[Rfam]
RNA sequence: GGCUGCCUGGGUUCCUGGCAUGCUGAUUUGUGACUUAAGAGAAAAAUCACAUUGCCAGGGAUAACCACGCAUCC
Numbered sequence: 001g002g003c004u005g006c007c008u009g010g011g012u013u014c015c016u017g018g019c020a021u022g023c024u025g026a027u028u029u030g031u032g033a034c035u036u037a038a039g040a041g042a043a044a045a046a047u048c049a050c051a052u053u054g055c056c057a058g059g060g061a062u063a064a065c066c067a068c069g070c071a072u073c074c
Stems, first nucleotide, its partner, number of pairs: 001074002004071003008067003011062010021051002024049006
The family of this 74-nucleotide RNA sequence from Ornithorhynchus anatinus is "mir-23 microRNA precursor family". The sequence is in the family's curated seed alignment. Taxonomically the source falls in Ornithorhynchus (Eukaryota, Metazoa, Euteleostomi, Mammalia). Pairs were carried over by alignment from the consensus structure, which was predicted with PFOLD. For this family Rfam cites "The developmental miRNA profiles of zebrafish as determined by small RNA cloning" (Chen et al., Genes Dev, 2005).